[Rfam]
RNA sequence: GUAAAAUUGGGGUGUUGUGCUUAUAUAAGUUCAUGAUUGGGUGAACGUUUCUACCAACUACCGGAAUAGUUGACUAUAGGCGGCAGCCUGGCUGUC
Number, nucleotide and partner (000 for none) at each position: 001g000002u000003a000004a000005a000006a000007u000008u000009g000010g000011g000012g000013u000014g000015u000016u000017g000018u082019g081020c080021u079022u078023a077024u076025a075026u000027a000028a000029g046030u045031u044032c043033a042034u041035g000036a000037u000038u000039g000040g000041g034042u033043g032044a031045a030046c029047g000048u000049u000050u000051c000052u000053a000054c000055c072056a071057a070058c069059u068060a067061c000062c000063g000064g000065a000066a000067u060068a059069g058070u057071u056072g055073a000074c000075u025076a024077u023078a022079g021080g020081c019082g018083g000084c000085a000086g000087c000088c000089u000090g000091g000092c000093u000094g000095u000096c000